[Rfam]
RNA: mir-29 microRNA precursor family
RNA sequence: GGAUGACUGAUUUCUCUUGGUGUUCAGAGGCUACACACUUAUCUAGCACCAUUUGAAAUCGGUUAUAA
Numbered sequence: 001g002g003a004u005g006a007c008u009g010a011u012u013u014c015u016c017u018u019g020g021u022g023u024u025c026a027g028a029g030g031c032u033a034c035a036c037a038c039u040u041a042u043c044u045a046g047c048a049c050c051a052u053u054u055g056a057a058a059u060c061g062g063u064u065a066u067a068a
Base pairs, nucleotide, nucleotide: 003066004065005063007062008061009060010059011058012057013056014055018051019050020049021048022047026044027043028042